RNA sequence: GGUCAUGAGCGCCAGCGCGAAGCCCCGGCUCGCUGGCCGGCAACCCUCCUCGUCGUGGGGUGCUCCGGGUGAGGACCCGACCCGUGCGACCGCACCGGUAAGGACGGCAA
Numbered sequence: 001g002g003u004c005a006u007g008a009g010c011g012c013c014a015g016c017g018c019g020a021a022g023c024c025c026c027g028g029c030u031c032g033c034u035g036g037c038c039g040g041c042a043a044c045c046c047u048c049c050u051c052g053u054c055g056u057g058g059g060g061u062g063c064u065c066c067g068g069g070u071g072a073g074g075a076c077c078c079g080a081c082c083c084g085u086g087c088g089a090c091c092g093c094a095c096c097g098g099u100a101a102g103g104a105c106g107g108c109a110a
Stems, first nucleotide, its partner, number of pairs: 001077004009038001011037006021030002039064003044060003048055001080099003084095004
A member of the RNA family "SAM (S-adenosyl methionine) riboswitch aptamer" from Cellulomonas fimi, 110 nucleotides long. Pairs were carried over by alignment from the consensus structure, which is taken from published work.